A member of the RNA family "Makes More Granules Regulator RNA (mmgR)" from Sphingobium xenophagum, 74 nucleotides long. Rfam describes the family as follows. SuhB later renamed mmgR (makes more granules regulator) was a putative non-coding RNA found multiple times in the Agrobacterium tumefaciens genome and related alpha-proteobacteria. Other non-coding RNAs uncovered in the same analysis include: speF, ybhL, metA, and serC.Several studies inSinorhizobium meliloti showed that suhB element is indeed a non-coding RNA:firstly it was detected on Northern blot and called Sm8RNA, secondly in an RNAseq study referred to as SmelC689.The mutant phenotype's (strain lacking the small RNA) cytoplasm contains higher content of polyhydroxybutyrate (PBH)storage granules than wild type strain. The family's RNA type in Rfam is small RNA. Clan: suhB sRNA clan. Taxonomically the source falls in Sphingobium (Bacteria, Pseudomonadati, Pseudomonadota, Alphaproteobacteria). It scores 48 bits against the family's covariance model. On this family, see Corbino et al., Genome Biol 2005: "Evidence for a second class of S-adenosylmethionine riboswitches and other regulatory RNA motifs in alpha-proteobacteria".
[Rfam]
RNA sequence: GAACUGUGCCUUUCAGGCAUCCUCUCCUAAACUUUUUGGGCUGGUCUGCGGAUCGGCCCUUUUUUUUGGCUCCG
Numbered sequence: 001g002a003a004c005u006g007u008g009c010c011u012u013u014c015a016g017g018c019a020u021c022c023u024c025u026c027c028u029a030a031a032c033u034u035u036u037u038g039g040g041c042u043g044g045u046c047u048g049c050g051g052a053u054c055g056g057c058c059c060u061u062u063u064u065u066u067u068g069g070c071u072c073c074g
Stems, first nucleotide, its partner, number of pairs: 008018004038059009